The record is a 129-nucleotide sequence from Molossus molossus, which matches "Small nucleolar RNA SNORA11" in Rfam. Pairs were carried over by alignment from the consensus structure, which was predicted with RNAalifold. The organism belongs to Molossus, within Eukaryota. For this family Rfam cites "A novel experimental approach for systematic identification of box H/ACA snoRNAs from eukaryotes" (Gu et al., Nucleic Acids Res, 2005). A search with the family's covariance model found it, with a score of 80 bits.
Nucleotides: 129
Stems, first nucleotide, its partner, number of pairs: 002056007013045008022035002069122002072119001076114001080111002083104003088099001090098003
Number, partner (000 for none) and nucleotide at each position: 001000g002056g003055g004054g005053u006052g007051u008050g009000c010000u011000c012000a013045g014044a015043a016042c017041a018040g019039g020038g021000u022035g023034u024000a025000u026000g027000a028000a029000g030000a031000a032000c033000g034023g035022c036000u037000c038020c039019u040018c041017u042016g043015u044014u045013u046000a047000c048000a049000a050008c051007a052006c053005a054004c055003c056002c057000a058000a059000c060000a061000g062000g063000a064000a065000c066000u067000u068000g069122g070121g071000u072119u073000u074000a075000c076114u077000c078000c079000u080111c081110a082000c083104a084103g085102g086000u087000g088099g089000c090098a091097g092096g093000a094000u095000a096092c097091u098090u099088u100000a101000g102085c103084c104083u105000u106000c107000c108000u109000g110081u111080g112000a113000c114076a115000u116000c117000a118000u119072g120000c121070c122069c123000u124000a125000u126000a127000c128000a129000u